[Rfam]
RNA sequence: UCCUCACCUAAACCCAAGGGCCACUAUUUAUUGUAAUAGUGGCUCAAACACAGGUGCUAACAGCAAAGGAUACCUCGUCAUCUUUGGAGGACUUCCUGUGCCCUUCAAAGUGAAUUUAGAGGUUCUAAACUC
Numbered sequence: 001u002c003c004u005c006a007c008c009u010a011a012a013c014c015c016a017a018g019g020g021c022c023a024c025u026a027u028u029u030a031u032u033g034u035a036a037u038a039g040u041g042g043c044u045c046a047a048a049c050a051c052a053g054g055u056g057c058u059a060a061c062a063g064c065a066a067a068g069g070a071u072a073c074c075u076c077g078u079c080a081u082c083u084u085u086g087g088a089g090g091a092c093u094u095c096c097u098g099u100g101c102c103c104u105u106c107a108a109a110g111u112g113a114a115u116u117u118a119g120a121g122g123u124u125c126u127a128a129a130c131u132c
Stems, first nucleotide, its partner, number of pairs: 005056005019044010069125001072123005082110009092100001

The record is a 132-nucleotide RNA from Erinaceus europaeus, which matches "Small nucleolar RNA SNORA68" in Rfam. It scores 105 bits against the family's covariance model. Rfam describes the family as follows. U68 is a member of the H/ACA class of small nucleolar RNAs (snoRNAs) which act as guides in the the modification of uridines to pseudouridines. It is annotated as an H/ACA-box small nucleolar RNA. A reference for the family is Ganot et al. (1997), "The family of box ACA small nucleolar RNAs is defined by an evolutionarily conserved secondary structure and ubiquitous sequence elements essential for RNA accumulation", Genes Dev. The base pairs follow the family's consensus structure, which was predicted with PFOLD. The organism belongs to Erinaceus, within Eukaryota.